This 168-nucleotide RNA from Kurthia sibirica belongs to the Rfam family "M-box riboswitch aptamer (ykoK leader)". The match comes from Rfam's covariance-model search (146 bits). Gene Ontology terms of the family: response to magnesium ion and regulation of gene expression. The family has 159 seed sequences and 1,095 matches in Rfam 15.1. Rfam describes the family as follows. M-box riboswitch, also know as ykoK leader is described as a metaloregulatory RNA that sense divalent metals and function as a genetic control element of genes related to divalent metal transport in bacteria. It was first reported upstream of the B.subtilis ykoK gene and genes with related functions in other bacteria. Pairs were carried over by alignment from the consensus structure.

[Rfam]
RNA sequence: AUUAUUCCUCGUUAGGUGAGGCUCCUAUAUGAAGAUAUGCUGCUGCCCAGAAACGUCCAAAGACGCCAAUGGGUCAACAGGAAUCAUCGAGUUAAGGUGAUUUUUAACGUAGCUGGACUUAAACGUCCUAUGUCAUAUAGUGCUAAAACUCUACGAAAGGGGCUUAUG
Numbered sequence: 001a002u003u004a005u006u007c008c009u010c011g012u013u014a015g016g017u018g019a020g021g022c023u024c025c026u027a028u029a030u031g032a033a034g035a036u037a038u039g040c041u042g043c044u045g046c047c048c049a050g051a052a053a054c055g056u057c058c059a060a061a062g063a064c065g066c067c068a069a070u071g072g073g074u075c076a077a078c079a080g081g082a083a084u085c086a087u088c089g090a091g092u093u094a095a096g097g098u099g100a101u102u103u104u105u106a107a108c109g110u111a112g113c114u115g116g117a118c119u120u121a122a123a124c125g126u127c128c129u130a131u132g133u134c135a136u137a138u139a140g141u142g143c144u145a146a147a148a149c150u151c152u153a154c155g156a157a158a159g160g161g162g163c164u165u166a167u168g
Base pairs, nucleotide, nucleotide: 007162008161009160010159011154012153013095015150016149017148020144021143022142025140026139027138028137029136030135031134032133039113040112041111042110043109045074046073047072048071049070054065055064056063057062080104081103082102083101086098087097088096115128116127117126